The family of this 110-nucleotide RNA from Virgibacillus salarius is "epsC RNA".

RNA sequence: UGGUGAUGUCUACUCGCCGUUAUCAAGGUAGGCACUCGGUCAUGCUGUGGGUUGUCAAACCUUAGACGCUAGUCGUCGAUAGUGUGGUGUGAGGAUGGGUUAGAUGCCCA
Numbered sequence: 001u002g003g004u005g006a007u008g009u010c011u012a013c014u015c016g017c018c019g020u021u022a023u024c025a026a027g028g029u030a031g032g033c034a035c036u037c038g039g040u041c042a043u044g045c046u047g048u049g050g051g052u053u054g055u056c057a058a059a060c061c062u063u064a065g066a067c068g069c070u071a072g073u074c075g076u077c078g079a080u081a082g083u084g085u086g087g088u089g090u091g092a093g094g095a096u097g098g099g100u101u102a103g104a105u106g107c108c109c110a
Base pairs, nucleotide, nucleotide: 001019002018003017004016007034008033009032010031011030012029013028035093036092037091038090039088040087041086042085043084044083045082046081049062050061051060052059053058065077066076067075068074096110097109098108099107100106
It scores 112 bits against the family's covariance model.